[Rfam]
RNA sequence: CCCAAGGCUUACGCCUUGGGCUGAGAUCUGCCGGGCGUUUCCCU
Numbered sequence: 001c002c003c004a005a006g007g008c009u010u011a012c013g014c015c016u017u018g019g020g021c022u023g024a025g026a027u028c029u030g031c032c033g034g035g036c037g038u039u040u041c042c043c044u
Stems, first nucleotide, its partner, number of pairs: 001020008033043003
RNA: Acido-Lenti-1 RNA